[Rfam]
RNA sequence: CCCCUUUCGCGGCGCGGAUGGCUUCACUAUAUUCGAUCUGCCGUCCUCGGACGGCUAUGGCGAUAAAUGGUCAUCGAAAUAAGCCUAUCGGACCCGGGGGCGGUACCCGGCGCCUCCACCACAAGCCAUCUGCAAGGAUGGCUCCACCGCUUGGGAUGGCUUGCGGCGGGGGCGAAAUAGGAUAGACGAGGGUGUAAAGGGUGUUCUUUUGCCCGGCAUGAUACCGCCGUUAUCGGGUCAAACCUAUAGUUGCCAACGACAACUAUGCUCCGGUGGCCGUCGCCGCGUAAUGCGGUGAUAGUACCGAAAUUGAAGUCCUGAGGCUUAGCCGCUUCAGGCGGGGUCCGGAGGCGCCUGGCAACAGAAGCCUCCACU
Numbered sequence: 001c002c003c004c005u006u007u008c009g010c011g012g013c014g015c016g017g018a019u020g021g022c023u024u025c026a027c028u029a030u031a032u033u034c035g036a037u038c039u040g041c042c043g044u045c046c047u048c049g050g051a052c053g054g055c056u057a058u059g060g061c062g063a064u065a066a067a068u069g070g071u072c073a074u075c076g077a078a079a080u081a082a083g084c085c086u087a088u089c090g091g092a093c094c095c096g097g098g099g100g101c102g103g104u105a106c107c108c109g110g111c112g113c114c115u116c117c118a119c120c121a122c123a124a125g126c127c128a129u130c131u132g133c134a135a136g137g138a139u140g141g142c143u144c145c146a147c148c149g150c151u152u153g154g155g156a157u158g159g160c161u162u163g164c165g166g167c168g169g170g171g172g173c174g175a176a177a178u179a180g181g182a183u184a185g186a187c188g189a190g191g192g193u194g195u196a197a198a199g200g201g202u203g204u205u206c207u208u209u210u211g212c213c214c215g216g217c218a219u220g221a222u223a224c225c226g227c228c229g230u231u232a233u234c235g236g237g238u239c240a241a242a243c244c245u246a247u248a249g250u251u252g253c254c255a256a257c258g259a260c261a262a263c264u265a266u267g268c269u270c271c272g273g274u275g276g277c278c279g280u281c282g283c284c285g286c287g288u289a290a291u292g293c294g295g296u297g298a299u300a301g302u303a304c305c306g307a308a309a310u311u312g313a314a315g316u317c318c319u320g321a322g323g324c325u326u327a328g329c330c331g332c333u334u335c336a337g338g339c340g341g342g343g344u345c346c347g348g349a350g351g352c353g354c355c356u357g358g359c360a361a362c363a364g365a366a367g368c369c370u371c372c373a374c375u
Base pairs, nucleotide, nucleotide: 040055041054042053043052044051059213060212061211062210063209069206070205072203073202074201075200084192085191086190088189089188090187094110095109096108097107098106111174112173113172114171115170116169117168214229215228216227217226219240220239221238224236225235341356342355343354344353347372348371349370350369351368352367
A member of the RNA family "Alphaproteobacteria transfer-messenger RNA" from Rhodoblastus acidophilus, 375 nucleotides long. From the family's description: Bacterial tmRNA, also known as 10Sa RNA or SsrA, is named for its dual tRNA and mRNA-like properties. The source organism's lineage runs through Bacteria, Pseudomonadati, Pseudomonadota, Rhodoblastaceae and Rhodoblastus. Its family is annotated with RNA catabolic process in the Gene Ontology. It is annotated as a non-coding RNA gene.